[Rfam]
RNA sequence: GCCUUGUGGUUCCUAGAGUCAGCAUCUCAGUGCUGAACUGUAGGUUUUAUUGACAGGCACAUAUUGAUUUCUGCGAUUUUAUGCAUGGAAGCUGCCAAUAUUGCAGCUCUCCAUAGCCCGGUUGCAGAUACACGA
Numbered sequence: 001g002c003c004u005u006g007u008g009g010u011u012c013c014u015a016g017a018g019u020c021a022g023c024a025u026c027u028c029a030g031u032g033c034u035g036a037a038c039u040g041u042a043g044g045u046u047u048u049a050u051u052g053a054c055a056g057g058c059a060c061a062u063a064u065u066g067a068u069u070u071c072u073g074c075g076a077u078u079u080u081a082u083g084c085a086u087g088g089a090a091g092c093u094g095c096c097a098a099u100a101u102u103g104c105a106g107c108u109c110u111c112c113a114u115a116g117c118c119c120g121g122u123u124g125c126a127g128a129u130a131c132a133c134g135a
Stems, first nucleotide, its partner, number of pairs: 001058004007049002012044004017039001019036005071127001073125006083117002085114004090108006